[Rfam]
About this RNA:
The record is a 160-nucleotide RNA from Phytohabitans houttuyneae, which matches "c-di-AMP riboswitch aptamer (ydaO/yuaA leader)" in Rfam. The organism belongs to Phytohabitans, within Bacteria. From the family's description: This family represents a conserved RNA structure found upstream of the ydaO and yuaA genes in Bacillus subtilis and related genes in other bacteria. Rfam links the family to the GO terms regulation of gene expression and cyclic-di-AMP binding.
RNA sequence: GGUCUCGUGCCGCCGAAUCGCACGACGAUCACACUCCGUCAGCGAGUCGGGGACCCACCUAUGCACUGGGGUGAAUCCGCGGCCGCCUUCGGCGGUGCGGUAGGGCGAUCUUCCCGUCCGAAUCCGACAGCUAACCCGGUAGGCGGCGUUGGGGAAGAAG
Number, nucleotide and partner (000 for none) at each position: 001g000002g000003u000004c000005u000006c000007g000008u000009g000010c000011c145012g144013c143014c142015g000016a000017a000018u045019c044020g043021c000022a000023c000024g000025a000026c000027g000028a000029u000030c000031a000032c000033a000034c000035u000036c000037c000038g000039u000040c000041a000042g000043c020044g019045a018046g140047u139048c138049g137050g136051g135052g000053a000054c000055c000056c068057a067058c000059c000060u000061a000062u000063g000064c000065a000066c000067u057068g056069g125070g124071g123072u000073g000074a000075a000076u000077c100078c099079g098080c097081g000082g000083c000084c000085g000086c000087c000088u000089u000090c000091g000092g000093c000094g000095g000096u000097g080098c079099g078100g077101u000102a000103g119104g118105g117106c116107g000108a000109u000110c000111u000112u000113c000114c000115c000116g106117u105118c104119c103120g000121a000122a000123u071124c070125c069126g000127a000128c000129a000130g000131c000132u000133a000134a000135c051136c050137c049138g048139g047140u046141a000142g014143g013144c012145g011146g000147c000148g000149u000150u000151g000152g000153g000154g000155a000156a000157g000158a000159a000160g000

The match comes from Rfam's covariance-model search (77 bits).